[Rfam]
Background: The record is an 85-nucleotide RNA sequence from Desulfosporosinus cupriresistens, which matches "c-di-GMP-I-GGC riboswitch aptamer" in Rfam. A search with the family's covariance model found it, with a score of 68 bits. Rfam 15.1 lists 1,298 matches to the family in 717 species.
RNA sequence: UUUGAAAAUGGCAAACUUAGCGAAAGCUAAGGACGCAAAGCCAUAGAUCGUACAGGGAAGGCUGACGACAGCUAGGCUACCAAAA
Numbered sequence: 001u002u003u004g005a006a007a008a009u010g011g012c013a014a015a016c017u018u019a020g021c022g023a024a025a026g027c028u029a030a031g032g033a034c035g036c037a038a039a040g041c042c043a044u045a046g047a048u049c050g051u052a053c054a055g056g057g058a059a060g061g062c063u064g065a066c067g068a069c070a071g072c073u074a075g076g077c078u079a080c081c082a083a084a085a
Base pairs, nucleotide, nucleotide: 001085003082004081011036012035016031017030018029019028020027021026034071039078040077041076042075044074045073046072048068049067050066051065